The record is an 82-nucleotide RNA from Ursus americanus, which matches "Small nucleolar RNA SNORD115" in Rfam. For this family Rfam cites "Identification of brain-specific and imprinted small nucleolar RNA genes exhibiting an unusual genomic organization" (Cavaille et al., Proc Natl Acad Sci U S A, 2000). Rfam classes the family as a C/D-box small nucleolar RNA. Rfam links the family to the GO terms nucleolus and RNA processing. The organism belongs to Ursus, within Eukaryota. The match comes from Rfam's covariance-model search (59 bits).

[Rfam]
RNA sequence: GGAUUGAAGAUGAGAACUCAUCUUAUCUUCUAGAGAAAUGAUGACCUAAAAAAUAAUGCUCAAUAAUUUUACACUGAGGCCC
Numbered sequence: 001g002g003a004u005u006g007a008a009g010a011u012g013a014g015a016a017c018u019c020a021u022c023u024u025a026u027c028u029u030c031u032a033g034a035g036a037a038a039u040g041a042u043g044a045c046c047u048a049a050a051a052a053a054u055a056a057u058g059c060u061c062a063a064u065a066a067u068u069u070u071a072c073a074c075u076g077a078g079g080c081c082c
Base pairs, nucleotide, nucleotide: 001082002081004079005076006075009072